[Rfam]
RNA sequence: GGUUUAAUUACCCAAAUUUGAGGUAAUUGAGUGUUUCGGCCCAGAGUUUCGGCUGCUGUGGCUUGAAAUUAAAUUUUGGAACGUCCUACUCUUGAGUGGGACAAC
Dot-bracket structure: ..((((((((((.........))))))))))..((((.(((..................)))..))))..............(((((((......)))))))...
Numbered sequence: 001g002g003u004u005u006a007a008u009u010a011c012c013c014a015a016a017u018u019u020g021a022g023g024u025a026a027u028u029g030a031g032u033g034u035u036u037c038g039g040c041c042c043a044g045a046g047u048u049u050c051g052g053c054u055g056c057u058g059u060g061g062c063u064u065g066a067a068a069u070u071a072a073a074u075u076u077u078g079g080a081a082c083g084u085c086c087u088a089c090u091c092u093u094g095a096g097u098g099g100g101a102c103a104a105c
Stems, first nucleotide, its partner, number of pairs: 003031010034068004039062003083102007

The record is a 105-nucleotide sequence from Cercopithifilaria johnstoni, which matches "SL1 RNA" in Rfam. The family has 28 seed sequences and 1,095 matches in Rfam 15.1. The family is grouped with related families in Rfam's "SL clan". The family's consensus secondary structure is taken from published work. The match comes from Rfam's covariance-model search (118 bits). By type it is a non-coding RNA gene. From the family's description: This family represents the SL1 RNA. SL1 is commonly located in the spacer region between 5S-rRNA genes where it is involved in trans-splicing. Trans-splicing is a form of RNA processing. The acquisition of a spliced leader from a SL RNA is a intra-molecular reaction which precisely joins exons derived from separately transcribed RNAs. The literature on the family includes a 2001 paper in Gene by Dassanayake et al., "Trans-spliced leader RNA, 5S-rRNA genes and novel variant orphan spliced-leader of the lymphatic filarial nematode Wuchereria bancrofti, and a sensitive polymerase chain reaction based detection assay".